[Rfam]
RNA sequence: ACUGUAAGUUCAAGGCCAUAGCGGAAGCGCUCGUAGUGCGGUCCUGUCAGGUUCCAAUAAAUCUGCAAAUUCUGCU
Numbered sequence: 001a002c003u004g005u006a007a008g009u010u011c012a013a014g015g016c017c018a019u020a021g022c023g024g025a026a027g028c029g030c031u032c033g034u035a036g037u038g039c040g041g042u043c044c045u046g047u048c049a050g051g052u053u054c055c056a057a058u059a060a061a062u063c064u065g066c067a068a069a070u071u072c073u074g075c076u
Base pairs, nucleotide, nucleotide: 014043015042016041017040020076021075022074023073024072025071026070027039028038029037048065049064050063051062052061053060

Notes
Mammalian CPEB3 ribozyme: a 76-nucleotide RNA sequence from Crocodylus porosus. The match comes from Rfam's covariance-model search (42 bits). The base pairs follow the family's consensus structure, which is taken from published work. On this family, see Teixeira et al., Nature 2004: "Autocatalytic RNA cleavage in the human beta-globin pre-mRNA promotes transcription termination". From the family's description: The mammalian CPEB3 ribozyme is a self cleaving RNA located in the second intron of the CPEB3 gene which belongs to a family of genes regulating messenger RNA polyadenylation. This ribozyme is highly conserved and found only in mammals. The CPEB3 ribozyme is structurally and biochemically related to the human hepatitis delta virus (HDV) ribozyme and the HDV ribozyme is proposed to have arisen from the human transcriptome. Lineage of the source: Eukaryota > Eumetazoa > Vertebrata > Archosauria > Crocodylus.